[Rfam]
RNA sequence: UUGCCCACUCUGGACCAACCCGUGUCCUUGGUGACCAACACAGGGGGGCAGAGUACUACUACUACUCUCAUAAACCUGUAGUGAAGGAACAAAUCCUCACUUCGGAUCCUGUCGGGAGAAACAAGC
Number, nucleotide and partner (000 for none) at each position: 001u000002u050003g049004c048005c047006c046007a000008c044009u043010c000011u000012g000013g039014a000015c000016c000017a000018a000019c000020c031021c000022g000023u000024g000025u000026c000027c000028u000029u000030g000031g020032u000033g000034a000035c000036c000037a000038a000039c013040a000041c000042a000043g009044g008045g000046g006047g005048g004049c003050a002051g000052a000053g000054u000055a000056c000057u000058a000059c000060u000061a000062c000063u120064a000065c118066u117067c116068u115069c114070a000071u000072a000073a000074a000075c000076c105077u104078g103079u000080a101081g100082u099083g000084a097085a000086g095087g000088a094089a000090c000091a000092a000093a000094u088095c086096c000097u084098c000099a082100c081101u080102u000103c078104g077105g076106a000107u000108c000109c000110u000111g000112u000113c000114g069115g068116g067117a066118g065119a000120a063121a000122c000123a000124a000125g000126c000
Rfam assigns this 126-nucleotide sequence from Cyclopterus lumpus to the family "Small nucleolar RNA SNORA26". By type it is an H/ACA-box small nucleolar RNA. The family has 76 seed sequences and 1,943 matches in Rfam 15.1. The base pairs follow the family's consensus structure, which was predicted with RNAalifold. The match comes from Rfam's covariance-model search (42 bits). The literature on the family includes a 2001 paper in EMBO J by Huttenhofer et al., "RNomics: an experimental approach that identifies 201 candidates for novel, small, non-messenger RNAs in mouse". The source organism's lineage runs through Eukaryota, Gnathostomata, Teleostomi, Neopterygii and Cyclopterus. The snoRNA HBI-6 belong to the H/ACA family of snoRNAs, guiding the pseudouridylation of position U4522 if the 28S rRNA. HBI-6 is the human orthologue of mouse MBI-6 snoRNA. The family is grouped with related families in Rfam's "SNORA27 clan".